[Rfam]
This 56-nucleotide RNA sequence from Mycolicibacterium litorale belongs to the Rfam family "L31-Actinobacteria ribosomal protein leader".
Taxonomically the source falls in Mycobacterium (subgen. Mycolicibacterium) (Bacteria, Bacillati, Actinomycetes, Mycobacteriaceae).
The family's consensus secondary structure is taken from published work.

RNA sequence: UCGGUUCCGGUUCACGCCCACACUCAGCGCAGGUCAUGAGCGGCGACCCGGCGGCC
Numbered sequence: 001u002c003g004g005u006u007c008c009g010g011u012u013c014a015c016g017c018c019c020a021c022a023c024u025c026a027g028c029g030c031a032g033g034u035c036a037u038g039a040g041c042g043g044c045g046a047c048c049c050g051g052c053g054g055c056c
Stems, first nucleotide, its partner, number of pairs: 003056003007051004015045004019040001021038002